[Rfam]
RNA: mir-927 microRNA precursor family
Organism: Harpegnathos saltator
RNA sequence: AGCGUGGUAUUUGUUUUAGAAUUCCUACGCUUUACCGGUGUUCAAAGUGGCAAAGCGUUUGAAAUCUGAAACGAAUGCGUG
Dot-bracket structure: .........(((((((((((.(((..(((((((.((............)).)))))))..))).)))))))))))......